[Rfam]
RNA sequence: CCCCUGUGAUAAGUUGUCAUGCUAAUACAGAGACACCAGUUAGGGAGUUUUACCCUAUAUUGGGUGUUGUUGAAAUAAACUCUUUCUCAUAAAUCCUGAGGGGC
Numbered sequence: 001c002c003c004c005u006g007u008g009a010u011a012a013g014u015u016g017u018c019a020u021g022c023u024a025a026u027a028c029a030g031a032g033a034c035a036c037c038a039g040u041u042a043g044g045g046a047g048u049u050u051u052a053c054c055c056u057a058u059a060u061u062g063g064g065u066g067u068u069g070u071u072g073a074a075a076u077a078a079a080c081u082c083u084u085u086c087u088c089a090u091a092a093a094u095c096c097u098g099a100g101g102g103g104c
Stems, first nucleotide, its partner, number of pairs: 001103004041057005
This 104-nucleotide RNA sequence from Aotus nancymaae belongs to the Rfam family "Small nucleolar RNA U6-53/MBII-28".
Pairs were carried over by alignment from the consensus structure.
On this family, see Huttenhofer et al., EMBO J 2001: "RNomics: an experimental approach that identifies 201 candidates for novel, small, non-messenger RNAs in mouse".
Gene Ontology terms of the family: RNA processing and nucleolus.
The match comes from Rfam's covariance-model search (96 bits).
The family has 25 seed sequences and 780 matches in Rfam 15.1.